[Rfam]
RNA sequence: CAGGCUCUCAGGCUCUGGCCGCCAGGCCCUCGGAAUGGCUAGAGCUCUUUUUGGCCGGCGCAAGCCGGCCUCUUUUUU
Numbered sequence: 001c002a003g004g005c006u007c008u009c010a011g012g013c014u015c016u017g018g019c020c021g022c023c024a025g026g027c028c029c030u031c032g033g034a035a036u037g038g039c040u041a042g043a044g045c046u047c048u049u050u051u052u053g054g055c056c057g058g059c060g061c062a063a064g065c066c067g068g069c070c071u072c073u074u075u076u077u078u
Stems, first nucleotide, its partner, number of pairs: 011046009027033002053070007
A member of the RNA family "Burkholderia sRNA 54" from Paraburkholderia humisilvae, 78 nucleotides long. Pairs were carried over by alignment from the consensus structure, which was predicted with RNAfold. About the family: Identified by RNA-seq, RACE and Northern blot. Rfam 15.1 lists 91 matches to the family in 60 species. Rfam links the family to the GO term bacterial biofilm matrix.